RNA sequence: AGCCGAUGAAGACACUUUGCGAUUUCUGACACCUCGUAUGAGAGCUGCAUCUGCAGCCUGAUUCUAACACUGGACUGAGGCUC
Numbered sequence: 001a002g003c004c005g006a007u008g009a010a011g012a013c014a015c016u017u018u019g020c021g022a023u024u025u026c027u028g029a030c031a032c033c034u035c036g037u038a039u040g041a042g043a044g045c046u047g048c049a050u051c052u053g054c055a056g057c058c059u060g061a062u063u064c065u066a067a068c069a070c071u072g073g074a075c076u077g078a079g080g081c082u083c
Stems, first nucleotide, its partner, number of pairs: 001082004044057005
Rfam assigns this 83-nucleotide RNA from Ornithorhynchus anatinus to the family "Small nucleolar RNA SNORD60". A reference for the family is Galardi et al. (2002), "Purified box C/D snoRNPs are able to reproduce site-specific 2'-O-methylation of target RNA in vitro", Mol Cell Biol. Lineage of the source: Eukaryota > Vertebrata > Tetrapoda > Monotremata > Ornithorhynchus. The family is grouped with related families in Rfam's "SNORD60 clan".